[Rfam]
RNA sequence: ACUGUGGAGUGUACAUGAACUUGUGAGUAGAUAUGACUACGGUCAAUCAAAAACAUACACAAUGAAGCAGUAA
Numbered sequence: 001a002c003u004g005u006g007g008a009g010u011g012u013a014c015a016u017g018a019a020c021u022u023g024u025g026a027g028u029a030g031a032u033a034u035g036a037c038u039a040c041g042g043u044c045a046a047u048c049a050a051a052a053a054c055a056u057a058c059a060c061a062a063u064g065a066a067g068c069a070g071u072a073a
Stems, first nucleotide, its partner, number of pairs: 001071005009060005022055003030048003034045002
About this RNA
The family of this 73-nucleotide RNA from Clostridiaceae bacterium AF18-31LB is "RAGATH-18 RNA". The family's consensus secondary structure is taken from published work. It scores 69 bits against the family's covariance model. From the family's description: Actinobacteria, Firmicutes, Fusobacteria, Thermotogae (1 example).